[Rfam]
A member of the RNA family "ZMP/ZTP riboswitch aptamer (pfl RNA motif)" from Nonomuraea sp., 89 nucleotides long. Gene Ontology terms of the family: regulation of purine nucleotide biosynthetic process and one-carbon metabolic process.
RNA sequence: CUAGGGCGUCGCGACUGGCGCAUUCGGUGGGAUCGACCACCAGGGAGCGGAUCAACCGGGAGCGGAGGCCGAGCGCCUGGGUCUUCGCC
Numbered sequence: 001c002u003a004g005g006g007c008g009u010c011g012c013g014a015c016u017g018g019c020g021c022a023u024u025c026g027g028u029g030g031g032a033u034c035g036a037c038c039a040c041c042a043g044g045g046a047g048c049g050g051a052u053c054a055a056c057c058g059g060g061a062g063c064g065g066a067g068g069c070c071g072a073g074c075g076c077c078u079g080g081g082u083c084u085u086c087g088c089c
Base pairs, nucleotide, nucleotide: 006053009050010049011048012047015044016043017077018076019075020074021073027040028039029038030037066084067083068082069081070080
The family's consensus secondary structure is taken from published work.